[Rfam]
RNA: Mammalian CPEB3 ribozyme
Organism: Alligator mississippiensis
RNA sequence: CUAAAUACAUAGGGGGCCAUAAAAGAAGUGUAUAUAUCAUGACCCCUGUCAGGUAAUACCUGCAAAUUCUGCU
Numbered sequence: 001c002u003a004a005a006u007a008c009a010u011a012g013g014g015g016g017c018c019a020u021a022a023a024a025g026a027a028g029u030g031u032a033u034a035u036a037u038c039a040u041g042a043c044c045c046c047u048g049u050c051a052g053g054u055a056a057u058a059c060c061u062g063c064a065a066a067u068u069c070u071g072c073u
Stems, first nucleotide, its partner, number of pairs: 013046004018041001021073001024070004028040003050062005
Dot-bracket structure: ............((((.(..[..[[[[(((.......)))).))))...(((((...)))))....]]]]..]